The family of this 94-nucleotide sequence from Protea cynaroides is "MIR398 microRNA precursor family". Rfam 15.1 lists 627 matches to the family in 211 species. The literature on the family includes a 2004 paper in Mol Cell by Jones-Rhoades and Bartel, "Computational identification of plant microRNAs and their targets, including a stress-induced miRNA". Its family is annotated with RISC complex and miRNA-mediated post-transcriptional gene silencing in the Gene Ontology.
RNA sequence: UAAAUCCCCAGAGGAGUGGCACCUGAGAACACAGGUGGUUUUUGCAAUUCCUGGAACUUCACUUGUGUUCUCAGGUCACCCCUUUGGGGCAACU
Numbered sequence: 001u002a003a004a005u006c007c008c009c010a011g012a013g014g015a016g017u018g019g020c021a022c023c024u025g026a027g028a029a030c031a032c033a034g035g036u037g038g039u040u041u042u043u044g045c046a047a048u049u050c051c052u053g054g055a056a057c058u059u060c061a062c063u064u065g066u067g068u069u070c071u072c073a074g075g076u077c078a079c080c081c082c083u084u085u086g087g088g089g090c091a092a093c094u
Stems, first nucleotide, its partner, number of pairs: 007088002011084004016079004025072014
It scores 76 bits against the family's covariance model.